[Rfam]
RNA sequence: AUUGAUUGAGCCAAACUUGUUGUGAAGCAGGGACGGAAAGCUAUGGGUCUUAUGAAAUAAGAUCGCCAAGUUGCUACAU
Numbered sequence: 001a002u003u004g005a006u007u008g009a010g011c012c013a014a015a016c017u018u019g020u021u022g023u024g025a026a027g028c029a030g031g032g033a034c035g036g037a038a039a040g041c042u043a044u045g046g047g048u049c050u051u052a053u054g055a056a057a058u059a060a061g062a063u064c065g066c067c068a069a070g071u072u073g074c075u076a077c078a079u
Base pairs, nucleotide, nucleotide: 001079003076004075011036012035016031017030018029019028020027021026034065039072040071041070042069044068045067046066047063048062049061
Shown here is a 79-nucleotide RNA from Sulfurovum sp. AR, a member of the family "c-di-GMP-I-GGC riboswitch aptamer". The source organism's lineage runs through Bacteria, Epsilonproteobacteria, Campylobacterales, Sulfurovaceae and Sulfurovum.